[Rfam]
Notes: The record is a 59-nucleotide sequence from Herbidospora galbida, which matches "Actino-pnp RNA" in Rfam.
RNA sequence: GCCGGUCCUCGGUAGUGGCCCCCGGUCGACGCGACCGGGCGCUUCGAUCGAAGACCGGC
Numbered sequence: 001g002c003c004g005g006u007c008c009u010c011g012g013u014a015g016u017g018g019c020c021c022c023c024g025g026u027c028g029a030c031g032c033g034a035c036c037g038g039g040c041g042c043u044u045c046g047a048u049c050g051a052a053g054a055c056c057g058g059c
Stems, first nucleotide, its partner, number of pairs: 001059007009051005017043003021039008
Rfam classes the family as a cis-regulatory element.